[Rfam]
RNA: Lysine riboswitch aptamer
RNA sequence: AGUUGAGGUAGAGGCGCGGUGAAUCAAGAGUAUCCUUGCGGAGGCUGGAAGCCAAUAAUGUGAGGAGAAAGGGGUCACCGCCGAAGUGCGGUUUUUAUCCGGAAAACCGUGCUGGGCCCAUAUCGAACAGGUAUGGGACUGUCACCAAAAAAAUCCCAAUUUUUUGGUGGAGCGCUACUUCAGUU
Numbered sequence: 001a002g003u004u005g006a007g008g009u010a011g012a013g014g015c016g017c018g019g020u021g022a023a024u025c026a027a028g029a030g031u032a033u034c035c036u037u038g039c040g041g042a043g044g045c046u047g048g049a050a051g052c053c054a055a056u057a058a059u060g061u062g063a064g065g066a067g068a069a070a071g072g073g074g075u076c077a078c079c080g081c082c083g084a085a086g087u088g089c090g091g092u093u094u095u096u097a098u099c100c101g102g103a104a105a106a107c108c109g110u111g112c113u114g115g116g117c118c119c120a121u122a123u124c125g126a127a128c129a130g131g132u133a134u135g136g137g138a139c140u141g142u143c144a145c146c147a148a149a150a151a152a153a154u155c156c157c158a159a160u161u162u163u164u165u166g167g168u169g170g171a172g173c174g175c176u177a178c179u180u181c182a183g184u185u
Base pairs, nucleotide, nucleotide: 006180007179008178009177010176011175016081017080018079019078020077021076023075024074025073033066034065035064036063037062038061039060040059085113086112087111088110089109090108091107092106093105094104095103096102114140115139117137118136119135120134121133122132123131124130142170143169144168145167146166147165148164149163150162151161